[Rfam]
RNA: Bacteroidales small SRP
RNA sequence: UGUGGCCGGGUAAGUCCUACACGGCAUGCUCCCCCUGAACUCCGCCAGGUCUUGAUCGAAGCAACGGUAGGGCGGUUGUAGCGGCGCGAUGUAGUAAGCUUGCCCAUUU
Numbered sequence: 001u002g003u004g005g006c007c008g009g010g011u012a013a014g015u016c017c018u019a020c021a022c023g024g025c026a027u028g029c030u031c032c033c034c035c036u037g038a039a040c041u042c043c044g045c046c047a048g049g050u051c052u053u054g055a056u057c058g059a060a061g062c063a064a065c066g067g068u069a070g071g072g073c074g075g076u077u078g079u080a081g082c083g084g085c086g087c088g089a090u091g092u093a094g095u096a097a098g099c100u101u102g103c104c105c106a107u108u109u
Stems, first nucleotide, its partner, number of pairs: 008105008017094005022088002024085002